A member of the RNA family "Small nucleolar RNA U2-30" from Nannospalax galili, 68 nucleotides long. A reference for the family is Tycowski et al. (2004), "Guide RNAs with 5' Caps and Novel Box C/D snoRNA-like Domains for Modification of snRNAs in Metazoa", Curr Biol. The family's consensus secondary structure is taken from published work. Lineage of the source: Eukaryota > Vertebrata > Mammalia > Glires > Nannospalax. The match comes from Rfam's covariance-model search (76 bits).

[Rfam]
RNA sequence: GAGCAAUGAUGAAAAGACUAUUACUGAACUUUGUCUCUAUGAAGGCUUCUACACUUGACCUGAGCUCA
Numbered sequence: 001g002a003g004c005a006a007u008g009a010u011g012a013a014a015a016g017a018c019u020a021u022u023a024c025u026g027a028a029c030u031u032u033g034u035c036u037c038u039a040u041g042a043a044g045g046c047u048u049c050u051a052c053a054c055u056u057g058a059c060c061u062g063a064g065c066u067c068a
Stems, first nucleotide, its partner, number of pairs: 001067004013032004019026001